[Rfam]
RNA sequence: ACAAGUUAAAGGCAAAACCAUUGAAAGGUGGUGACGCAAAGCUAGAGGGACUAAGGGAUUUCCUAUGUCAGCCAGUUGCCAAA
Numbered sequence: 001a002c003a004a005g006u007u008a009a010a011g012g013c014a015a016a017a018c019c020a021u022u023g024a025a026a027g028g029u030g031g032u033g034a035c036g037c038a039a040a041g042c043u044a045g046a047g048g049g050a051c052u053a054a055g056g057g058a059u060u061u062c063c064u065a066u067g068u069c070a071g072c073c074a075g076u077u078g079c080c081a082a083a
Stems, first nucleotide, its partner, number of pairs: 012037002017032006040077004047073002049069003056063002